RNA sequence: ACGAAAGGACGACCUUUCGUUCUCUUGAAAAAUGGGACGGCCCAU
Number, nucleotide and partner (000 for none) at each position: 001a020002c019003g018004a017005a016006a015007g014008g013009a000010c000011g000012a000013c008014c007015u006016u005017u004018c003019g002020u001021u000022c000023u000024c000025u000026u000027g000028a000029a000030a000031a000032a045033u044034g043035g042036g041037a000038c000039g000040g000041c036042c035043c034044a033045u032
Source information:
The family of this 45-nucleotide RNA from Brucella rhizosphaerae is "Guanidine-II riboswitch aptamer (mini-ykkC)". Gene Ontology term of the family: regulation of gene expression. The match comes from Rfam's covariance-model search (36 bits). NCBI's taxonomy places the organism under Bacteria, Pseudomonadati, Pseudomonadota, Brucellaceae, Brucella.